[Rfam]
RNA sequence: CUCCAUGCCACAUCCUCGCGACUAACGACAGGUCUUACUCCCUUAAGCACUCUCAUUAGCCGCGCGAACCUCUGUAACUGAAGAGCCUAAACAAAAACCACCACCAGCAUUUUUGUGCUGUUAUCUAUGAUGGCUUCUCAGAAGAAAAGGGGCCCUAUAUGGCCCCUUUC
Dot-bracket structure: ((.(..(..(((....((((.((((.((........................)).))))...))))......)))..).).))......(...............................)..........................(((.(.......).))).....
RNA: SraG RNA